The record is a 60-nucleotide sequence from Suricata suricatta, which matches "Selenocysteine insertion sequence 1" in Rfam. By type it is a cis-regulatory element. About the family: The incorporation of selenocysteine into a protein sequence is directed by an in-frame UGA codon (usually a stop codon) within the coding region of the mRNA. Selenoprotein mRNAs contain a conserved secondary structure in the 3' UTR that is required for the distinction of UGA stop from UGA selenocysteine. The selenocysteine insertion sequence (SECIS) is around 60 nt in length and adopts a hairpin structure which is sufficiently well-defined and conserved to act as a computational screen for selenoprotein genes. The family's consensus secondary structure is taken from published work. Lineage of the source: Eukaryota > Gnathostomata > Euteleostomi > Feliformia > Suricata. For this family Rfam cites "A survey of metazoan selenocysteine insertion sequences" (Lambert et al., Biochimie, 2002). It scores 40 bits against the family's covariance model.
[Rfam]
RNA sequence: GCAGCCCCAUGAUGGCUGGACCUGAAAUCCUCGGUGGGUCCAGCUUGAUGUCUUCGCAGC
Numbered sequence: 001g002c003a004g005c006c007c008c009a010u011g012a013u014g015g016c017u018g019g020a021c022c023u024g025a026a027a028u029c030c031u032c033g034g035u036g037g038g039u040c041c042a043g044c045u046u047g048a049u050g051u052c053u054u055c056g057c058a059g060c
Stems, first nucleotide, its partner, number of pairs: 001060002004057002014045010029034001